[Rfam]
RNA sequence: AAGGGCAGUGACGACUCGGAAAUAUUCAAGCUCAACAGACCGUAAUGAGGCGUGUUUCUUUCGAGAUUCGUUUCUGUGUCGAUAAUCCCGCUGAACUGAGCCUUC
Numbered sequence: 001a002a003g004g005g006c007a008g009u010g011a012c013g014a015c016u017c018g019g020a021a022a023u024a025u026u027c028a029a030g031c032u033c034a035a036c037a038g039a040c041c042g043u044a045a046u047g048a049g050g051c052g053u054g055u056u057u058c059u060u061u062c063g064a065g066a067u068u069c070g071u072u073u074c075u076g077u078g079u080c081g082a083u084a085a086u087c088c089c090g091c092u093g094a095a096c097u098g099a100g101c102c103u104u105c
Stems, first nucleotide, its partner, number of pairs: 002104005
Dot-bracket structure: .(((((.............................................................................................))))).
RNA: Small nucleolar RNA Z107/R87